[Rfam]
RNA sequence: UCACGGCUGUGUUUUAUGGCUUUUUAUUCCUAUGUGAGGGUAUGCAGUGUUGCGUAGGGGUGAAAGCCAUUGAAUACGCCGUGA
Number, nucleotide and partner (000 for none) at each position: 001u000002c083003a082004c081005g080006g079007c078008u000009g077010u076011g075012u074013u073014u072015u000016a070017u069018g068019g067020c066021u065022u064023u063024u000025u000026a061027u060028u059029c058030c057031u056032a055033u054034g053035u052036g051037a050038g000039g000040g000041u000042a000043u000044g000045c000046a000047g000048u000049g000050u037051u036052g035053c034054g033055u032056a031057g030058g029059g028060g027061u026062g000063a023064a022065a021066g020067c019068c018069a017070u016071u000072g014073a013074a012075u011076a010077c009078g007079c006080c005081g004082u003083g002084a000
Source information: Rfam assigns this 84-nucleotide sequence from Eptatretus burgeri to the family "mir-135 microRNA precursor family". A search with the family's covariance model found it, with a score of 67 bits. A reference for the family is Lagos-Quintana et al. (2002), "Identification of tissue-specific microRNAs from mouse", Curr Biol. The family has 88 seed sequences and 2,125 matches in Rfam 15.1.